[Rfam]
RNA sequence: GAGUUUUGUCACAAUAGUAAUUCAACUCAGUACGAGAGGAACUGUUGAUUCAGAUAAUUGGUAUUUGCCCUUGGUUGAGCAGCCAGUGGGGCGAAGCUACCAUCUGUUAGAUUAUAGCUGAACGCCUCUAAGUUAGAAUCUAUGCUAGAAAGUGACAAUAAAUUUUUUGUUCAACCGCGUUUAGUCGCAUACAAAUAGGUCUUUUUUAUUAAAGUCCCAGAGUCUUACCAGGCUUGUAACUUUUUUGGUCGCAGAUGAUUGCUUCCUUAAUUUACAGGCGUAGUAUAAUUCCCAAAUGUCGGUUGAGGUAAAUCCUUUGCAUACGACUUAAAUUUGGAACAGGGUAUUGUAAGUAGUAGAGUGGUCUUUGUUGCUGCGAUCUACUGAGAUUAAGCCCUCGUUUUGAAGAUUUGU
Numbered sequence: 001g002a003g004u005u006u007u008g009u010c011a012c013a014a015u016a017g018u019a020a021u022u023c024a025a026c027u028c029a030g031u032a033c034g035a036g037a038g039g040a041a042c043u044g045u046u047g048a049u050u051c052a053g054a055u056a057a058u059u060g061g062u063a064u065u066u067g068c069c070c071u072u073g074g075u076u077g078a079g080c081a082g083c084c085a086g087u088g089g090g091g092c093g094a095a096g097c098u099a100c101c102a103u104c105u106g107u108u109a110g111a112u113u114a115u116a117g118c119u120g121a122a123c124g125c126c127u128c129u130a131a132g133u134u135a136g137a138a139u140c141u142a143u144g145c146u147a148g149a150a151a152g153u154g155a156c157a158a159u160a161a162a163u164u165u166u167u168u169g170u171u172c173a174a175c176c177g178c179g180u181u182u183a184g185u186c187g188c189a190u191a192c193a194a195a196u197a198g199g200u201c202u203u204u205u206u207u208a209u210u211a212a213a214g215u216c217c218c219a220g221a222g223u224c225u226u227a228c229c230a231g232g233c234u235u236g237u238a239a240c241u242u243u244u245u246u247g248g249u250c251g252c253a254g255a256u257g258a259u260u261g262c263u264u265c266c267u268u269a270a271u272u273u274a275c276a277g278g279c280g281u282a283g284u285a286u287a288a289u290u291c292c293c294a295a296a297u298g299u300c301g302g303u304u305g306a307g308g309u310a311a312a313u314c315c316u317u318u319g320c321a322u323a324c325g326a327c328u329u330a331a332a333u334u335u336g337g338a339a340c341a342g343g344g345u346a347u348u349g350u351a352a353g354u355a356g357u358a359g360a361g362u363g364g365u366c367u368u369u370g371u372u373g374c375u376g377c378g379a380u381c382u383a384c385u386g387a388g389a390u391u392a393a394g395c396c397c398u399c400g401u402u403u404u405g406a407a408g409a410u411u412u413g414u
Stems, first nucleotide, its partner, number of pairs: 006158007015147004020050001022048005051106005059099003066093005071086006108142003115135005171306007310412005316330001319327001336404005342397003346390002353384004358380001361377005
This 414-nucleotide part of an RNA from Smittium mucronatum belongs to the Rfam family "Eukaryotic large subunit ribosomal RNA". The base pairs follow the family's consensus structure, which is taken from published work. The family is grouped with related families in Rfam's "LSU clan".